[Rfam]
This 61-nucleotide sequence from Thiopseudomonas alkaliphila belongs to the Rfam family "Pseudomonas sRNA P26". From the family's description: This small RNA (sRNA) was computationally identified in the genome of the opportunistic pathogen Pseudomonas aeruginosa and its expression verified by northern blot analysis. P26 is conserved across many Gammaproteobacteria species and appears to be consistently located between the DNA directed RNA polymerase (beta subunit) and 50S ribosomal protein L7/L12 genes. It is annotated as a non-coding RNA gene. On this family, see Livny et al., Nucleic Acids Res 2006: "Identification of 17 Pseudomonas aeruginosa sRNAs and prediction of sRNA-encoding genes in 10 diverse pathogens using the bioinformatic tool sRNAPredict2". Taxonomically the source falls in Thiopseudomonas (Bacteria, Pseudomonadati, Pseudomonadota, Pseudomonadales).
RNA sequence: GACUUUGCGUUACAGCCAGCUCUUCGCAAGGCUGAUGGCUGGUGGCAAUUGCCACCGGCCU
Dot-bracket structure: ............(((((.((.....))..)))))..((((((((((....)))))))))).